Notes: Shown here is a 131-nucleotide sequence from Musa balbisiana, a member of the family "MIR162_1 microRNA precursor family". Rfam 15.1 lists 270 matches to the family in 158 species. Lineage of the source: Eukaryota > Tracheophyta > Mesangiospermae > Musaceae > Musa. Rfam links the family to the GO terms miRNA-mediated post-transcriptional gene silencing and RISC complex. Its Rfam clan is "MIR167 microRNA precursor clan".
RNA sequence: AAGGUGAUGUCUGGACGCAGCGGUUUAUCGAUCUUUUCCUGGCCUUGUUGGAUUUGGUUCUGAUCUGGUUGGGAGUUCAAGGGUGCAAAGCUGGAAUCGGUCGAUAAACCUCUGCAUCCGGUGUUUGUAAC
Numbered sequence: 001a002a003g004g005u006g007a008u009g010u011c012u013g014g015a016c017g018c019a020g021c022g023g024u025u026u027a028u029c030g031a032u033c034u035u036u037u038c039c040u041g042g043c044c045u046u047g048u049u050g051g052a053u054u055u056g057g058u059u060c061u062g063a064u065c066u067g068g069u070u071g072g073g074a075g076u077u078c079a080a081g082g083g084u085g086c087a088a089a090g091c092u093g094g095a096a097u098c099g100g101u102c103g104a105u106a107a108a109c110c111u112c113u114g115c116a117u118c119c120g121g122u123g124u125u126u127g128u129a130a131c
Stems, first nucleotide, its partner, number of pairs: 013119003018114003022110004027105007036096003
Dot-bracket structure: ............(((..(((.((((.(((((((..(((.......................................................)))..))))))).)))).)))..)))............